[Rfam]
RNA sequence: UCAUAACUAUAUUUGAAACAAUGAAAAACAGAAUUGCAAAUACUUGGUGGUGGUCUAACUUACGUUCAAACUUCGUGAGCUAAAUUGCCAUUGUAUAAAAAUAUAUAACUAAAAGGCUUGUC
Numbered sequence: 001u002c003a004u005a006a007c008u009a010u011a012u013u014u015g016a017a018a019c020a021a022u023g024a025a026a027a028a029c030a031g032a033a034u035u036g037c038a039a040a041u042a043c044u045u046g047g048u049g050g051u052g053g054u055c056u057a058a059c060u061u062a063c064g065u066u067c068a069a070a071c072u073u074c075g076u077g078a079g080c081u082a083a084a085u086u087g088c089c090a091u092u093g094u095a096u097a098a099a100a101a102u103a104u105a106u107a108a109c110u111a112a113a114a115g116g117c118u119u120g121u122c
Stems, first nucleotide, its partner, number of pairs: 036104001038102001041097002045093003049089004056083001057081001059079003062073001064071001
Dot-bracket structure: ...................................(.(..((..(((.((((...((.((((.(......).)...))).).)..)))).)))..))....).)..................
Bacteroidete tryptophan peptide leader RNA: a 122-nucleotide RNA from Zunongwangia atlantica. Gene Ontology terms of the family: regulation of gene expression and S-adenosylmethionine metabolic process. Taxonomically the source falls in Zunongwangia atlantica (Bacteria, Bacteroidota, Flavobacteriales, Zunongwangia). It is annotated as a cis-regulatory leader.